The record is a 107-nucleotide RNA sequence, which matches "Plant small nucleolar RNA R71" in Rfam. The sequence is in the family's curated seed alignment. The family's consensus secondary structure was predicted with PFOLD. It is annotated as a C/D-box small nucleolar RNA. A reference for the family is Brown et al. (2003), "Plant snoRNAs: functional evolution and new modes of gene expression", Trends Plant Sci.

RNA sequence: AAGUCAUGAUGAGGACAUUGGUUAAUGUAACCCAUGAAACGCUCCAAUGCUUCACAGAAGCUUUCACCAGUCUUCUGUGAAAAACCAGAGAUCUCAUUUUUGAGUCU
Numbered sequence: 001a002a003g004u005c006a007u008g009a010u011g012a013g014g015a016c017a018u019u020g021g022u023u024a025a026u027g028u029a030a031c032c033c034a035u036g037a038a039a040c041g042c043u044c045c046a047a048u049g050c051u052u053c054a055c056a057g058a059a060g061c062u063u064u065c066a067c068c069a070g071u072c073u074u075c076u077g078u079g080a081a082a083a084a085c086c087a088g089a090g091a092u093c094u095c096a097u098u099u100u101u102g103a104g105u106c107u
Stems, first nucleotide, its partner, number of pairs: 001107001003105002005102002057074002060071001